[Rfam]
About this RNA:
This 335-nucleotide sequence from Aquibacillus halophilus belongs to the Rfam family "Group I catalytic intron". The organism belongs to Aquibacillus, within Bacteria. Rfam's curators write: Group I catalytic introns are large self-splicing ribozymes. Rfam 15.1 lists 5,602 matches to the family in 1,395 species.

RNA sequence: GCAACUACUUCAAUAACUAUUCAAGGGCGUCUUAUCCAGUAAUGGAUAAGAGAAUAACUGGGUGAAUUGCUGGAACUUCCUAAAGCUCCUUCAACCACAACGUAGCUGGAAACGGCAGGCGUGCGGUUCAAAAAUGAAAGAGAUAAAUGGACAAUCAGCAGCCAAGCUCCUGUGAGGAAACUCUGGAGAAGGUUCAACGACUAGAGAACUACGGUCUAAGGCGAAAGCUAUGACUAUGAAUCUCGUAGGGUGAUAGGUUUUUAUCAUUCGAAGUGCCCAGCCCCACAUCGUUAGAUGGGUGAAGAUAUAGUCUAUUCUAUGAUCGAAAGACAUAG
Numbered sequence: 001g002c003a004a005c006u007a008c009u010u011c012a013a014u015a016a017c018u019a020u021u022c023a024a025g026g027g028c029g030u031c032u033u034a035u036c037c038a039g040u041a042a043u044g045g046a047u048a049a050g051a052g053a054a055u056a057a058c059u060g061g062g063u064g065a066a067u068u069g070c071u072g073g074a075a076c077u078u079c080c081u082a083a084a085g086c087u088c089c090u091u092c093a094a095c096c097a098c099a100a101c102g103u104a105g106c107u108g109g110a111a112a113c114g115g116c117a118g119g120c121g122u123g124c125g126g127u128u129c130a131a132a133a134a135u136g137a138a139a140g141a142g143a144u145a146a147a148u149g150g151a152c153a154a155u156c157a158g159c160a161g162c163c164a165a166g167c168u169c170c171u172g173u174g175a176g177g178a179a180a181c182u183c184u185g186g187a188g189a190a191g192g193u194u195c196a197a198c199g200a201c202u203a204g205a206g207a208a209c210u211a212c213g214g215u216c217u218a219a220g221g222c223g224a225a226a227g228c229u230a231u232g233a234c235u236a237u238g239a240a241u242c243u244c245g246u247a248g249g250g251u252g253a254u255a256g257g258u259u260u261u262u263a264u265c266a267u268u269c270g271a272a273g274u275g276c277c278c279a280g281c282c283c284c285a286c287a288u289c290g291u292u293a294g295a296u297g298g299g300u301g302a303a304g305a306u307a308u309a310g311u312c313u314a315u316u317c318u319a320u321g322a323u324c325g326a327a328a329g330a331c332a333u334a335g
Base pairs, nucleotide, nucleotide: 007030008029010027011026036045037044038043058280059279060278061277063275064274068160069159070158071157072156073155078151079150080149161193162192168186169185197313199312200311201310202309203308282299283298284297285296288295289294319333320332321331323330324329